Notes
The record is a 57-nucleotide RNA sequence from Zingiber officinale, which matches "Plastid-rps18 3UTR RNA" in Rfam. About the family: Plastid rps18 is a non-coding RNA (ncRNA) present in plastids. It was identified as a short stem-loop motif in the 3 prime untranslate region (3UTR) of rps18 gene. The source organism's lineage runs through Eukaryota, Viridiplantae, Streptophyta, commelinids and Zingiber. A reference for the family is Richter et al. (2023), "Retrograde signaling in plants: A critical review focusing on the GUN pathway and beyond", Plant Commun. By type it is a cis-regulatory element. The match comes from Rfam's covariance-model search (68 bits).
[Rfam]
RNA sequence: UGGAUGUAUUUUACGAUUAAGAAGCAAUUGCUUCUGGUACAAAUUAUGUAUUAAUCU
Numbered sequence: 001u002g003g004a005u006g007u008a009u010u011u012u013a014c015g016a017u018u019a020a021g022a023a024g025c026a027a028u029u030g031c032u033u034c035u036g037g038u039a040c041a042a043a044u045u046a047u048g049u050a051u052u053a054a055u056c057u
Base pairs, nucleotide, nucleotide: 018037020035021034022033023032024031025030